[Rfam]
Rfam assigns this 118-nucleotide RNA sequence from Cognatundibacterium luofuense to the family "ALIL pseudoknot". On this family, see Mazauric et al., J Biol Chem 2008: "Apical loop-internal loop RNA pseudoknots: a new type of stimulator of -1 translational frameshifting in bacteria". The family's consensus secondary structure is taken from published work. Rfam classes the family as a cis-regulatory element. Taxonomically the source falls in Cognatundibacterium (Bacteria, Pseudomonadati, Burkholderiales, Oxalobacteraceae).
RNA sequence: UGCUUUUUUCGCACAGACGGGGCUCGACUGCCACCGCAAAUAGUUAGCAUCUUCAUUGAUCAGCAUCGGGCAACCUAAGGGGGAGAGCCGAUUUGUAAAGCAUUGAUUUGCCGCCCUU
Numbered sequence: 001u002g003c004u005u006u007u008u009u010c011g012c013a014c015a016g017a018c019g020g021g022g023c024u025c026g027a028c029u030g031c032c033a034c035c036g037c038a039a040a041u042a043g044u045u046a047g048c049a050u051c052u053u054c055a056u057u058g059a060u061c062a063g064c065a066u067c068g069g070g071c072a073a074c075c076u077a078a079g080g081g082g083g084a085g086a087g088c089c090g091a092u093u094u095g096u097a098a099a100g101c102a103u104u105g106a107u108u109u110g111c112c113g114c115c116c117u118u
Stems, first nucleotide, its partner, number of pairs: 016032001018030003078118005089113002092110001095107002097104002